Shown here is a 77-nucleotide RNA sequence from Xanthomonas oryzae, a member of the family "Xanthomonas sRNA sX9". By type it is a small RNA. Rfam 15.1 lists 309 matches to the family in 52 species.
RNA sequence: AUGUAGCACGCGUCCACCGCGGUUCCGGGCGCGCGGUCCGCGCCCACCUGACAGCUGCUCGCUCCGUGUUGUUAGCC
Numbered sequence: 001a002u003g004u005a006g007c008a009c010g011c012g013u014c015c016a017c018c019g020c021g022g023u024u025c026c027g028g029g030c031g032c033g034c035g036g037u038c039c040g041c042g043c044c045c046a047c048c049u050g051a052c053a054g055c056u057g058c059u060c061g062c063u064c065c066g067u068g069u070u071g072u073u074a075g076c077c
Stems, first nucleotide, its partner, number of pairs: 002016002005013001020036001022034002025031001048075007